[Rfam]
RNA sequence: GGCGAGGUAGCUCAGUUGGUUAGAGCGCAGGAUUCAUACCCCUGAGGUCGGCAGUUCGACCCUGCCUCUCGCUA
Numbered sequence: 001g002g003c004g005a006g007g008u009a010g011c012u013c014a015g016u017u018g019g020u021u022a023g024a025g026c027g028c029a030g031g032a033u034u035c036a037u038a039c040c041c042c043u044g045a046g047g048u049c050g051g052c053a054g055u056u057c058g059a060c061c062c063u064g065c066c067u068c069u070c071g072c073u074a
Stems, first nucleotide, its partner, number of pairs: 001073007010026004028044004050066005
RNA: tRNA